[Rfam]
RNA sequence: CUGGAUGGCGCGGGAGAGAUCACCUUUGCGGUGACGCCGAAGGGGUAUCGCCCCAGAAACUCUCAGGCAAAAGAACCGCGCCGUCGUC
Numbered sequence: 001c002u003g004g005a006u007g008g009c010g011c012g013g014g015a016g017a018g019a020u021c022a023c024c025u026u027u028g029c030g031g032u033g034a035c036g037c038c039g040a041a042g043g044g045g046u047a048u049c050g051c052c053c054c055a056g057a058a059a060c061u062c063u064c065a066g067g068c069a070a071a072a073g074a075a076c077c078g079c080g081c082c083g084u085c086g087u088c
Stems, first nucleotide, its partner, number of pairs: 006083008020034004036068003039064002043062003050054001
RNA: Glycine riboswitch aptamer